[Rfam]
RNA sequence: GAGCCAUGAUGACAUGCCUACCUGAUGGUUGGGUCCAUCAAUUCAGCUUGACUUUCAAGAUUGACAAAACUGGCCCUUCUGAGCUC
Numbered sequence: 001g002a003g004c005c006a007u008g009a010u011g012a013c014a015u016g017c018c019u020a021c022c023u024g025a026u027g028g029u030u031g032g033g034u035c036c037a038u039c040a041a042u043u044c045a046g047c048u049u050g051a052c053u054u055u056c057a058a059g060a061u062u063g064a065c066a067a068a069a070c071u072g073g074c075c076c077u078u079c080u081g082a083g084c085u086c
Stems, first nucleotide, its partner, number of pairs: 001086004
The record is an 86-nucleotide RNA from Cynara cardunculus, which matches "small nucleolar RNA snoR114" in Rfam. It is annotated as a C/D-box small nucleolar RNA. Its family is annotated with nucleolus and RNA processing in the Gene Ontology. For this family Rfam cites "Mining small RNA sequencing data: a new approach to identify small nucleolar RNAs in Arabidopsis" (Chen and Wu, Nucleic Acids Res, 2009). It scores 51 bits against the family's covariance model.